[Rfam]
RNA: freshwater-2 RNA
RNA sequence: GUUCGCUCUUAACGGAGAGUUUAUGCAGAAAUCCAACUGCGUAGAUCAUAGAACGGUCUUAAACAUUAAGGAGAAAACAAAAUG
Dot-bracket structure: .((((.......)))).....(((((((........)))))))((((.......))))..........................
Numbered sequence: 001g002u003u004c005g006c007u008c009u010u011a012a013c014g015g016a017g018a019g020u021u022u023a024u025g026c027a028g029a030a031a032u033c034c035a036a037c038u039g040c041g042u043a044g045a046u047c048a049u050a051g052a053a054c055g056g057u058c059u060u061a062a063a064c065a066u067u068a069a070g071g072a073g074a075a076a077a078c079a080a081a082a083u084g
Stems, first nucleotide, its partner, number of pairs: 002016004022043007044058004